The record is a 268-nucleotide part of an RNA, which matches "Bacterial large subunit ribosomal RNA" in Rfam. A search with the family's covariance model found it, with a score of 2645 bits.
[Rfam]
RNA sequence: GGAGAAUUGAGAAGGGCUGUCCUUAGUACGAGAGGACCGGGACGGACGAACCUCUGGUAUGUCAGUUGUACCGCCAGGUGCAUGGCUGAUUGGCUACGUUCGGGAUAGAUAACCGCUGAAAGCAUCUAAGCGGGAAGCUUGCUUCAAGAUGAAUUCUCCUGACACCCUUGUGGUGUGAGAGGUUCCCAGUAGAUGACUGGGUUGAUAGGCCGGGUGUGUAAGCACGGACUGACGACGUGUUGAGCUGACCGGUACUAAUAGACCAAAG
Numbered sequence: 001g002g003a004g005a006a007u008u009g010a011g012a013a014g015g016g017c018u019g020u021c022c023u024u025a026g027u028a029c030g031a032g033a034g035g036a037c038c039g040g041g042a043c044g045g046a047c048g049a050a051c052c053u054c055u056g057g058u059a060u061g062u063c064a065g066u067u068g069u070a071c072c073g074c075c076a077g078g079u080g081c082a083u084g085g086c087u088g089a090u091u092g093g094c095u096a097c098g099u100u101c102g103g104g105a106u107a108g109a110u111a112a113c114c115g116c117u118g119a120a121a122g123c124a125u126c127u128a129a130g131c132g133g134g135a136a137g138c139u140u141g142c143u144u145c146a147a148g149a150u151g152a153a154u155u156c157u158c159c160u161g162a163c164a165c166c167c168u169u170g171u172g173g174u175g176u177g178a179g180a181g182g183u184u185c186c187c188a189g190u191a192g193a194u195g196a197c198u199g200g201g202u203u204g205a206u207a208g209g210c211c212g213g214g215u216g217u218g219u220a221a222g223c224a225c226g227g228a229c230u231g232a233c234g235a236c237g238u239g240u241u242g243a244g245c246u247g248a249c250c251g252g253u254a255c256u257a258a259u260a261g262a263c264c265a266a267a268g
Stems, first nucleotide, its partner, number of pairs: 001159008011145004017045007047102005055096003062089005067082006107139002113133005162176005181264004185201005206257003209253005216245001222240005